[Rfam]
RNA: Tryptophan operon leader
Organism: Enterobacteriaceae bacterium strain FGI 57
RNA sequence: CAUGGUUGGUGGCGCACUCCCAGAUAACGGGCAGUGUCAUCACGUCUGCAUUAUGCAAACAGAUACCCGGCCCGCCACUGAGCGGGCUUUUUAUU
Numbered sequence: 001c002a003u004g005g006u007u008g009g010u011g012g013c014g015c016a017c018u019c020c021c022a023g024a025u026a027a028c029g030g031g032c033a034g035u036g037u038c039a040u041c042a043c044g045u046c047u048g049c050a051u052u053a054u055g056c057a058a059a060c061a062g063a064u065a066c067c068c069g070g071c072c073c074g075c076c077a078c079u080g081a082g083c084g085g086g087c088u089u090u091u092u093a094u095u
Stems, first nucleotide, its partner, number of pairs: 009043004014037005020031002023028001069088007076080001